[Rfam]
About this RNA:
Guanidine-II riboswitch aptamer (mini-ykkC): a 49-nucleotide sequence from Microvirga sp. VF16. Its family is annotated with regulation of gene expression in the Gene Ontology.
RNA sequence: GGGUGAGGACGACCUCGCGCCUUCAUGACAACCGGUAGGGACGGCCCUG
Numbered sequence: 001g002g003g004u005g006a007g008g009a010c011g012a013c014c015u016c017g018c019g020c021c022u023u024c025a026u027g028a029c030a031a032c033c034g035g036u037a038g039g040g041a042c043g044g045c046c047c048u049g
Base pairs, nucleotide, nucleotide: 001020003018004017005016006015007014008013036049037048038047039046040045
Source information: The organism belongs to Microvirga, within Bacteria. About the family: Simpler in structure and has fewer highly conserved nucleotide positions than the ykkC-yxkD leader.